[Rfam]
RNA: mir-2001 microRNA precursor family
RNA sequence: UUGUCAAUGUGACCGAUAUAAUGGGCAUGAAUAAUCAUGAUCAAUGUCCAGUAUAGCGGUGACAAUGAGAU
Numbered sequence: 001u002u003g004u005c006a007a008u009g010u011g012a013c014c015g016a017u018a019u020a021a022u023g024g025g026c027a028u029g030a031a032u033a034a035u036c037a038u039g040a041u042c043a044a045u046g047u048c049c050a051g052u053a054u055a056g057c058g059g060u061g062a063c064a065a066u067g068a069g070a071u
Stems, first nucleotide, its partner, number of pairs: 002070001004068003008064003012060004017055004022050007